[Rfam]
Shown here is a 131-nucleotide RNA from Candidula unifasciata, a member of the family "Small nucleolar RNA SNORA14". Lineage of the source: Eukaryota > Bilateria > Mollusca > Gastropoda > Candidula. The base pairs follow the family's consensus structure, which was predicted with RNAfold. It is annotated as an H/ACA-box small nucleolar RNA. Rfam describes the family as follows. ACA14 is a member of the H/ACA class of snoRNA that guide the sites of modification of uridines to pseudouridines.
RNA sequence: UAGCAUCAGGCUUUUUGCUUUAAUCUAUACUGAGCUUGAUGUAUAGAAUACCUUGAUGCAACAGGAAUAUUUGGGCCAUCCAAGGCUGACAGAAUUUGUUUUCUGUUGGCCAUUUCAACCCACAUACAUUU
Number, nucleotide and partner (000 for none) at each position: 001u000002a000003g059004c058005a057006u056007c000008a053009g052010g051011c000012u000013u000014u000015u000016u048017g000018c046019u045020u000021u043022a000023a040024u039025c038026u000027a000028u000029a000030c000031u000032g000033a000034g000035c000036u000037u000038g025039a024040u023041g000042u000043a021044u000045a019046g018047a000048a016049u000050a000051c010052c009053u008054u000055g000056a006057u005058g004059c003060a000061a000062c000063a131064g130065g129066a000067a000068u126069a125070u124071u000072u122073g121074g120075g000076c000077c000078a000079u000080c000081c000082a000083a000084g111085g110086c109087u108088g107089a106090c105091a000092g103093a102094a000095u000096u000097u000098g000099u000100u000101u000102u093103c092104u000105g090106u089107u088108g087109g086110c085111c084112a000113u000114u000115u000116c000117a000118a000119c000120c074121c073122a072123c000124a070125u069126a068127c000128a000129u065130u064131u063